[Rfam]
RNA sequence: AAUCCGCACACACUGACCCGUGUACGGCAGGAGCGGGGGACCCACAGGUACAACGCCUGUUCCGGUCUCCGGAACUGGCUAGGGGUAAAGCCGCGCGAAAACGUGGCCGGGCAUCUCCAGCUCGCACCCGACAGCUCACCUCGCAGGCGCCGGAGAGGAAUUCG
Numbered sequence: 001a002a003u004c005c006g007c008a009c010a011c012a013c014u015g016a017c018c019c020g021u022g023u024a025c026g027g028c029a030g031g032a033g034c035g036g037g038g039g040a041c042c043c044a045c046a047g048g049u050a051c052a053a054c055g056c057c058u059g060u061u062c063c064g065g066u067c068u069c070c071g072g073a074a075c076u077g078g079c080u081a082g083g084g085g086u087a088a089a090g091c092c093g094c095g096c097g098a099a100a101a102c103g104u105g106g107c108c109g110g111g112c113a114u115c116u117c118c119a120g121c122u123c124g125c126a127c128c129c130g131a132c133a134g135c136u137c138a139c140c141u142c143g144c145a146g147g148c149g150c151c152g153g154a155g156a157g158g159a160a161u162u163c164g
Base pairs, nucleotide, nucleotide: 003032004031005030033144034143035142036141037140038139043082083129084128085127091106092105093104094103109123110122111121112120
The record is a 164-nucleotide sequence from Streptomyces sporangiiformans, which matches "c-di-AMP riboswitch aptamer (ydaO/yuaA leader)" in Rfam. Rfam describes the family as follows. This family represents a conserved RNA structure found upstream of the ydaO and yuaA genes in Bacillus subtilis and related genes in other bacteria. The pairing is the family consensus, mapped onto this sequence. The match comes from Rfam's covariance-model search (59 bits). Gene Ontology terms of the family: regulation of gene expression and cyclic-di-AMP binding.